[Rfam]
Record summary
mir-7563 microRNA precursor family: a 76-nucleotide RNA from Ameiurus melas. Gene Ontology terms of the family: miRNA-mediated post-transcriptional gene silencing and RISC complex. It scores 81 bits against the family's covariance model. The family's consensus secondary structure was predicted with RNAalifold.

RNA sequence: ACCGCGUACUUACCUACUAUAUAGUAGGCGAAAGACAUGUAUUUCAGUUACUAUAUAGUAGGUAAGUACGCAGUUU
Numbered sequence: 001a002c003c004g005c006g007u008a009c010u011u012a013c014c015u016a017c018u019a020u021a022u023a024g025u026a027g028g029c030g031a032a033a034g035a036c037a038u039g040u041a042u043u044u045c046a047g048u049u050a051c052u053a054u055a056u057a058g059u060a061g062g063u064a065a066g067u068a069c070g071c072a073g074u075u076u
Base pairs, nucleotide, nucleotide: 001074002073004071005070006069007068008067009066010065011064012063013062014061015060017058018057019056020055021054022053023052024051025050026049027048030045031044033042035040